[Rfam]
RNA sequence: UUUUCUACCCUGACUCGCUUUGAAGUGAGAUAACAGGGAAAAAUGAAAUUUGCAGAUAGCUCAAGUAGUGCAGCAAUGGCGUAAGACGCAUUGAGUAUCAGGCAAUUAGCGAGCUACAGGUAGUGGCCUGGACAGUAUUAAGGGACCCGAUUUCCACAGAUGUUAGGAACGGCUUUCCCCGAUAAAAAGCGCUGUUUUCACAAAGAAAAACAGGCUUACCGAGAUAAUGCGCCCCUGUGCAGGCGACAACCGUGAGGUUGACGAUUUUGCGAUUAGACUCGGGGCCGUCGGUUAACACUGUCCAUCAGUUCCUCUAUGUGUAGACUCAAUUGACAA
Numbered sequence: 001u002u003u004u005c006u007a008c009c010c011u012g013a014c015u016c017g018c019u020u021u022g023a024a025g026u027g028a029g030a031u032a033a034c035a036g037g038g039a040a041a042a043a044u045g046a047a048a049u050u051u052g053c054a055g056a057u058a059g060c061u062c063a064a065g066u067a068g069u070g071c072a073g074c075a076a077u078g079g080c081g082u083a084a085g086a087c088g089c090a091u092u093g094a095g096u097a098u099c100a101g102g103c104a105a106u107u108a109g110c111g112a113g114c115u116a117c118a119g120g121u122a123g124u125g126g127c128c129u130g131g132a133c134a135g136u137a138u139u140a141a142g143g144g145a146c147c148c149g150a151u152u153u154c155c156a157c158a159g160a161u162g163u164u165a166g167g168a169a170c171g172g173c174u175u176u177c178c179c180c181g182a183u184a185a186a187a188a189g190c191g192c193u194g195u196u197u198u199c200a201c202a203a204a205g206a207a208a209a210a211c212a213g214g215c216u217u218a219c220c221g222a223g224a225u226a227a228u229g230c231g232c233c234c235c236u237g238u239g240c241a242g243g244c245g246a247c248a249a250c251c252g253u254g255a256g257g258u259u260g261a262c263g264a265u266u267u268u269g270c271g272a273u274u275a276g277a278c279u280c281g282g283g284g285c286c287g288u289c290g291g292u293u294a295a296c297a298c299u300g301u302c303c304a305u306c307a308g309u310u311c312c313u314c315u316a317u318g319u320g321u322a323g324a325c326u327c328a329a330u331u332g333a334c335a336a
Stems, first nucleotide, its partner, number of pairs: 003040004014029005050105004055099002060095004068089003073080002111327003114323005120317002129304007142179004152169004188216003192213004196208004218292005231285005244263002247260005
A member of the RNA family "RNase E 5' UTR element" from Limnobaculum parvum, 336 nucleotides long. NCBI's taxonomy places the organism under Bacteria, Pseudomonadati, Gammaproteobacteria, Budviciaceae, Limnobaculum. It is annotated as a cis-regulatory element. The family's consensus secondary structure is taken from published work. The match comes from Rfam's covariance-model search (204 bits).